[Rfam]
RNA sequence: GAACUUCGAUCGGGAGAGAACGCCGGAGACAUCGCGGCGGCGCCGAAGGAGCAACCGCCCCGGAAACUCUCAGGCAAAAGGACCGAUCGGAUCAA
Numbered sequence: 001g002a003a004c005u006u007c008g009a010u011c012g013g014g015a016g017a018g019a020a021c022g023c024c025g026g027a028g029a030c031a032u033c034g035c036g037g038c039g040g041c042g043c044c045g046a047a048g049g050a051g052c053a054a055c056c057g058c059c060c061c062g063g064a065a066a067c068u069c070u071c072a073g074g075c076a077a078a079a080g081g082a083c084c085g086a087u088c089g090g091a092u093c094a095a
Stems, first nucleotide, its partner, number of pairs: 006090008021039005042075003045071002049069003055063002
Dot-bracket structure: .....((((((((.......(((((.........)))))..(((((..(((...((.....))...))))).))).......)))))))).....
The record is a 95-nucleotide RNA sequence from Noviherbaspirillum autotrophicum, which matches "Glycine riboswitch aptamer" in Rfam.
Rfam links the family to the GO term glycine biosynthetic process.